Shown here is a 139-nucleotide sequence from Pseudomonas sp. StFLB209, a member of the family "radC RNA". It is annotated as a cis-regulatory element. Lineage of the source: Bacteria > Pseudomonadota > Pseudomonadales > Pseudomonadaceae > Pseudomonas. The family's consensus secondary structure is taken from published work.
RNA sequence: GAACUGGCCGUGCGAAGGCUGUCGAUGACAGCCCCCCAGGUGACCCGAACCUUCAAGGUCAUGCCGCUCUCGCGGUGGUUCUCCCCAAGGGCGAUUCGCAUCCGGCAGCUCGCCCGGUCACUACCCAUGUGAUGGAUGC
Numbered sequence: 001g002a003a004c005u006g007g008c009c010g011u012g013c014g015a016a017g018g019c020u021g022u023c024g025a026u027g028a029c030a031g032c033c034c035c036c037c038a039g040g041u042g043a044c045c046c047g048a049a050c051c052u053u054c055a056a057g058g059u060c061a062u063g064c065c066g067c068u069c070u071c072g073c074g075g076u077g078g079u080u081c082u083c084c085c086c087a088a089g090g091g092c093g094a095u096u097c098g099c100a101u102c103c104g105g106c107a108g109c110u111c112g113c114c115c116g117g118u119c120a121c122u123a124c125c126c127a128u129g130u131g132a133u134g135g136a137u138g139c
Base pairs, nucleotide, nucleotide: 014034018032019031020030021029022028023027040062041061042060043059044058045057048080049079050078051077063076064075065074066073067072111138112137117133118132119131120130121129